[Rfam]
RNA sequence: AUCUAAACGGGAUUGAAGCGAAAAUCCUUUUUGUCAUGCUAAGCUUGUCGAAGCACAAAAAGAUUGUAGCAAAAAGCCCGACUAACA
Numbered sequence: 001a002u003c004u005a006a007a008c009g010g011g012a013u014u015g016a017a018g019c020g021a022a023a024a025u026c027c028u029u030u031u032u033g034u035c036a037u038g039c040u041a042a043g044c045u046u047g048u049c050g051a052a053g054c055a056c057a058a059a060a061a062g063a064u065u066g067u068a069g070c071a072a073a074a075a076g077c078c079c080g081a082c083u084a085a086c087a
Stems, first nucleotide, its partner, number of pairs: 009079003013075002018070002023065004029060005037055003